The record is a 68-nucleotide RNA sequence from Domibacillus iocasae, which matches "Bacillaceae-1 RNA" in Rfam.

RNA sequence: CAAUAUGGAUCAAAAGCUAAGAACGCAGCAUCUGUGCUGCAACGCUUUUGUGACCUACGUCCUGUAGG
Numbered sequence: 001c002a003a004u005a006u007g008g009a010u011c012a013a014a015a016g017c018u019a020a021g022a023a024c025g026c027a028g029c030a031u032c033u034g035u036g037c038u039g040c041a042a043c044g045c046u047u048u049u050g051u052g053a054c055c056u057a058c059g060u061c062c063u064g065u066a067g068g
Stems, first nucleotide, its partner, number of pairs: 011050007025040005054068005
The family's consensus secondary structure is taken from published work.